A member of the RNA family "GA-cis RNA", 89 nucleotides long. Pairs were carried over by alignment from the consensus structure, which is taken from published work. Rfam's curators put it in the seed alignment.
[Rfam]
RNA sequence: AGGAGGAGGUCCCCAAUGAUGCGCAGCAUCAUUUUUGCAUGGGACCGACGACUUGCCGCCGAAACGUAGCUGAGGGGGCCGUUCAGAUG
Numbered sequence: 001a002g003g004a005g006g007a008g009g010u011c012c013c014c015a016a017u018g019a020u021g022c023g024c025a026g027c028a029u030c031a032u033u034u035u036u037g038c039a040u041g042g043g044a045c046c047g048a049c050g051a052c053u054u055g056c057c058g059c060c061g062a063a064a065c066g067u068a069g070c071u072g073a074g075g076g077g078g079c080c081g082u083u084c085a086g087a088u089g
Stems, first nucleotide, its partner, number of pairs: 008046006016032006055079003059075002063071001